[Rfam]
RNA: Listeria sRNA rli52
Organism: Listeria monocytogenes
RNA sequence: UCCUAUAAACAAAUAUCCUUAUUCAGGAAUGUUACCAACUUGGGCAUAACCUAGAUAAAUGGAGAAUUGGCUUUUUGGGCUAGUUUUCGAUUUAU
Numbered sequence: 001u002c003c004u005a006u007a008a009a010c011a012a013a014u015a016u017c018c019u020u021a022u023u024c025a026g027g028a029a030u031g032u033u034a035c036c037a038a039c040u041u042g043g044g045c046a047u048a049a050c051c052u053a054g055a056u057a058a059a060u061g062g063a064g065a066a067u068u069g070g071c072u073u074u075u076u077g078g079g080c081u082a083g084u085u086u087u088c089g090a091u092u093u094a095u
Stems, first nucleotide, its partner, number of pairs: 016028004040054005055095006062088011